The family of this 175-nucleotide sequence from Lachnoclostridium sp. An131 is "Lysine riboswitch aptamer". The family has 47 seed sequences and 3,224 matches in Rfam 15.1. Its family is annotated with lysine biosynthetic process in the Gene Ontology. Lineage of the source: Bacteria > Bacillati > Bacillota > Lachnospiraceae > Lachnoclostridium.
[Rfam]
RNA sequence: AGGCGAGAUAGAGGUUGCGUUUUCCAGGAGUACCUUUUCGGAUAUGGCAGGCAUAGAAGAAGGAAAGGGAAAGGGGGCGACGCCGAAAGAGGUCGUUUCCUGCGGGCGGUUUCUUGGGCAUGCCGUGAAGAAUGGUAUGACUGUCAUCAGUUUCUGAUGGGGCGCUAUCCAGAGA
Numbered sequence: 001a002g003g004c005g006a007g008a009u010a011g012a013g014g015u016u017g018c019g020u021u022u023u024c025c026a027g028g029a030g031u032a033c034c035u036u037u038u039c040g041g042a043u044a045u046g047g048c049a050g051g052c053a054u055a056g057a058a059g060a061a062g063g064a065a066a067g068g069g070a071a072a073g074g075g076g077g078c079g080a081c082g083c084c085g086a087a088a089g090a091g092g093u094c095g096u097u098u099c100c101u102g103c104g105g106g107c108g109g110u111u112u113c114u115u116g117g118g119c120a121u122g123c124c125g126u127g128a129a130g131a132a133u134g135g136u137a138u139g140a141c142u143g144u145c146a147u148c149a150g151u152u153u154c155u156g157a158u159g160g161g162g163c164g165c166u167a168u169c170c171a172g173a174g175a
Stems, first nucleotide, its partner, number of pairs: 007169005017083005023077003033068007087115012116142002119139008144160007